RNA sequence: UGUUAAUUGACUAUAAAUAAUCGUAUAAAUUCGAUAAUAUGGAUCGAAAGUUUCUACCUACAAACCUUAAAUUUGUGGACUACGAGGUGUUUAUGUUUUGCA
Numbered sequence: 001u002g003u004u005a006a007u008u009g010a011c012u013a014u015a016a017a018u019a020a021u022c023g024u025a026u027a028a029a030u031u032c033g034a035u036a037a038u039a040u041g042g043a044u045c046g047a048a049a050g051u052u053u054c055u056a057c058c059u060a061c062a063a064a065c066c067u068u069a070a071a072u073u074u075g076u077g078g079a080c081u082a083c084g085a086g087g088u089g090u091u092u093a094u095g096u097u098u099u100g101c102a
Stems, first nucleotide, its partner, number of pairs: 021085005030048006058078007